[Rfam]
RNA sequence: AACGUUCACCCGUAAGGGCGGAAGUAAGCGAUCGCUGAAGGAACGCACC
Dot-bracket structure: ..(((((.(((....)))..[.....(((....)))....)))))]...

Rfam assigns this 49-nucleotide sequence to the family "Glutamine riboswitch aptamer (glnA leader)". The family's consensus secondary structure is taken from published work.